Rfam assigns this 151-nucleotide RNA sequence from Panicum hallii to the family "Small nucleolar RNA snoR2/U65". Clan: SNORA65 clan. For this family Rfam cites "Localization and processing from a polycistronic precursor of novel snoRNAs in maize" (Shaw et al., J Cell Sci, 1998).
[Rfam]
RNA sequence: GGCCUGAUGCCACGUCUCCGUUAGCUACGGGCAUUGAUCGGAGAUGCUAUGAUUAGGCCGAUACAGAGUUGUUUCAAUGUUUCACAUGUUGAUAGGAACCUGUGGACUGCUUCUCUAUCUGUCCACAGAGCCGGUUUCUGUGAUUAUAUUA
Number, nucleotide and partner (000 for none) at each position: 001g000002g058003c057004c056005u055006g054007a053008u052009g050010c000011c000012a000013c046014g045015u044016c043017u042018c041019c000020g039021u000022u037023a000024g032025c031026u030027a000028c000029g000030g026031g025032c024033a000034u000035u000036g000037a022038u000039c020040g000041g018042a017043g016044a015045u014046g013047c000048u000049a000050u009051g000052a008053u007054u006055a005056g004057g003058c002059c000060g000061a000062u000063a000064c000065a000066g000067a000068g000069u000070u000071g000072u000073u000074u000075c000076a000077a000078u000079g000080u000081u000082u143083c142084a141085c140086a139087u000088g000089u000090u000091g000092a000093u000094a000095g132096g131097a000098a000099c000100c128101u127102g126103u000104g124105g123106a122107c121108u000109g000110c000111u000112u000113c000114u000115c000116u000117a000118u000119c000120u000121g107122u106123c105124c104125a000126c102127a101128g100129a000130g000131c096132c095133g000134g000135u000136u000137u000138c000139u086140g085141u084142g083143a082144u000145u000146a000147u000148a000149u000150u000151a000
Background: The match comes from Rfam's covariance-model search (138 bits).